[Rfam]
A member of the RNA family "Alphaproteobacterial sRNA ar35" from Phyllobacterium endophyticum, 131 nucleotides long.

RNA sequence: AAGAUGACUGCUGAUCAGCUUCAGGCUGGCUGAUAAAUAAUUCGUCUUUCGCGGUCUUUGACCACGGAUGUACUGGCACUGAUAGCAAAGAUGAAUUUGAGAAAGGUCGGGUUUUCCCGGCCUUUUAUUUU
Numbered sequence: 001a002a003g004a005u006g007a008c009u010g011c012u013g014a015u016c017a018g019c020u021u022c023a024g025g026c027u028g029g030c031u032g033a034u035a036a037a038u039a040a041u042u043c044g045u046c047u048u049u050c051g052c053g054g055u056c057u058u059u060g061a062c063c064a065c066g067g068a069u070g071u072a073c074u075g076g077c078a079c080u081g082a083u084a085g086c087a088a089a090g091a092u093g094a095a096u097u098u099g100a101g102a103a104a105g106g107u108c109g110g111g112u113u114u115u116c117c118c119g120g121c122c123u124u125u126u127a128u129u130u131u
Stems, first nucleotide, its partner, number of pairs: 003038001005036001008032001016028005041095007054083003059078002062076003099128001101126010
The family's RNA type in Rfam is small RNA. A reference for the family is del Val et al. (2012), "A survey of sRNA families in alpha-proteobacteria", RNA Biol.